[Rfam]
RNA sequence: UUCUAUCUUCGGGGCAGGGUGAAAUUCCCGACCGACGGUAAGGAGUGAUUACACUCUAAGUCCGUGACCUGUUCGGCAUGUGCCGAAUGGCUGACCUGGUGCGAUUCCGGGACCGACAGUUACAGUCUGGAUGGGAGAAGAUACGG
Numbered sequence: 001u002u003c004u005a006u007c008u009u010c011g012g013g014g015c016a017g018g019g020u021g022a023a024a025u026u027c028c029c030g031a032c033c034g035a036c037g038g039u040a041a042g043g044a045g046u047g048a049u050u051a052c053a054c055u056c057u058a059a060g061u062c063c064g065u066g067a068c069c070u071g072u073u074c075g076g077c078a079u080g081u082g083c084c085g086a087a088u089g090g091c092u093g094a095c096c097u098g099g100u101g102c103g104a105u106u107c108c109g110g111g112a113c114c115g116a117c118a119g120u121u122a123c124a125g126u127c128u129g130g131a132u133g134g135g136a137g138a139a140g141a142u143a144c145g146g
Base pairs, nucleotide, nucleotide: 004143005142006141007140008139009138010137017029018028019027031126032125033115034114035065036064037063038062060113061112069090070089095111096110097109098108099107117129118128119127

Description:
The family of this 146-nucleotide RNA sequence from Sediminibacillus albus is "FMN riboswitch aptamer (RFN element)". The family's consensus secondary structure is taken from published work. On this family, see Vitreschak et al., Nucleic Acids Res 2002: "Regulation of riboflavin biosynthesis and transport genes in bacteria by transcriptional and translational attenuation". The match comes from Rfam's covariance-model search (112 bits). Rfam links the family to the GO term FMN binding.